[Rfam]
RNA sequence: AGUUUACAACAGGGGUGCCGUUGGCUGAGAGCAAAACGCAAGUUUUGUAACCCUUUGUACCUGAACUAGUUAGUACUAGCGUAGGAAGUUGUUAUAACGAUUUG
Numbered sequence: 001a002g003u004u005u006a007c008a009a010c011a012g013g014g015g016u017g018c019c020g021u022u023g024g025c026u027g028a029g030a031g032c033a034a035a036a037c038g039c040a041a042g043u044u045u046u047g048u049a050a051c052c053c054u055u056u057g058u059a060c061c062u063g064a065a066c067u068a069g070u071u072a073g074u075a076c077u078a079g080c081g082u083a084g085g086a087a088g089u090u091g092u093u094a095u096a097a098c099g100a101u102u103u104g
Stems, first nucleotide, its partner, number of pairs: 006092005011054004017025003032047005060085004066079004
This 104-nucleotide sequence from Cysteiniphilum litorale belongs to the Rfam family "TPP riboswitch aptamer (THI element)". The organism belongs to Cysteiniphilum, within Bacteria. A search with the family's covariance model found it, with a score of 75 bits. Pairs were carried over by alignment from the consensus structure, which is taken from published work. About the family: Vitamin B(1) in its active form thiamin pyrophosphate (TPP) is an essential coenzyme that is synthesised by coupling of pyrimidine and thiazole moieties in bacteria.